[Rfam]
RNA sequence: ACAUUAUGUUGGGGCCAUAGAAGGAGCAUUCACGUCACGGUCCGUCAGGUAUCUGUAUACCUGCGAAUCCUUCU
Numbered sequence: 001a002c003a004u005u006a007u008g009u010u011g012g013g014g015c016c017a018u019a020g021a022a023g024g025a026g027c028a029u030u031c032a033c034g035u036c037a038c039g040g041u042c043c044g045u046c047a048g049g050u051a052u053c054u055g056u057a058u059a060c061c062u063g064c065g066a067a068u069c070c071u072u073c074u
Stems, first nucleotide, its partner, number of pairs: 012043005019074007026038001046063007
Rfam assigns this 74-nucleotide sequence from Laticauda laticaudata to the family "Mammalian CPEB3 ribozyme". It scores 49 bits against the family's covariance model. The organism belongs to Laticauda, within Eukaryota. Rfam describes the family as follows. The mammalian CPEB3 ribozyme is a self cleaving RNA located in the second intron of the CPEB3 gene which belongs to a family of genes regulating messenger RNA polyadenylation. The family's consensus secondary structure is taken from published work.